Nucleotides: 225
Base pairs, nucleotide, nucleotide: 001065002064003063004062005061006060007059008058010031012028013027017024032054033053034052068211069210070209072207073090074089075088076087093205094204095203096202097201098200101197102196109143110142113137114136115135116134117133118132119131120130123219124218125217126216127215128214145186146185147184148183152181153180157179159176160175161174162173163172
Number, partner (000 for none) and nucleotide at each position: 001065g002064u003063c004062a005061a006060c007059u008058a009000a010031c011000c012028c013027c014000c015000a016000c017024u018000u019000g020000a021000a022000g023000a024017a025000g026000u027013g028012g029000u030000a031010g032054c033053u034052u035000g036000g037000a038000g039000a040000a041000g042000a043000a044000a045000u046000u047000c048000u049000u050000u051000g052034a053033a054032g055000c056000c057000c058008u059007a060006g061005u062004u063003g064002a065001c066000u067000a068211g069210c070209c071000u072207a073090a074089g075088u076087a077000g078000c079000g080000a081000a082000a083000a084000a085000a086000a087076u088075a089074c090073u091000a092000c093205g094204u095203u096202g097201g098200a099000u100000u101197g102196c103000a104000u105000g106000u107000a108000g109143a110142a111000a112000c113137c114136c115135a116134a117133g118132a119131a120130u121000g122000a123219u124218g125217c126216u127215c128214u129000a130120g131119u132118u133117u134116u135115u136114g137113g138000c139000u140000c141000u142110u143109u144000c145186g146185u147184g148183g149000c150000u151000c152181u153180g154000u155000a156000a157179a158000a159176g160175u161174u162173c163172u164000g165000a166000g167000g168000g169000u170000a171000a172163g173162g174161a175160a176159c177000g178000g179157u180153c181152a182000a183148c184147c185146a186145c187000a188000u189000u190000g191000c192000g193000a194000a195000g196102g197101c198000u199000u200098u201097c202096c203095a204094a205093c206000a207072u208000u209070g210069g211068c212000g213000a214128a215127g216126g217125g218124c219123a220000a221000a222000u223000a224000a225000a